[Rfam]
RNA: Bacterial small signal recognition particle RNA
RNA sequence: GGACAGGUCUGCGCGGCAGGAAGCCGUGAACCAUGUCAGACGGGGAACCGAGCAGCAUUAAGCGGAAGCUCUUGGGCGACGCAGGUUGCCUGUCCGUC
Numbered sequence: 001g002g003a004c005a006g007g008u009c010u011g012c013g014c015g016g017c018a019g020g021a022a023g024c025c026g027u028g029a030a031c032c033a034u035g036u037c038a039g040a041c042g043g044g045g046a047a048c049c050g051a052g053c054a055g056c057a058u059u060a061a062g063c064g065g066a067a068g069c070u071c072u073u074g075g076g077c078g079a080c081g082c083a084g085g086u087u088g089c090c091u092g093u094c095c096g097u098c
Stems, first nucleotide, its partner, number of pairs: 003093005008085006014076001017074005024065004033058004041050003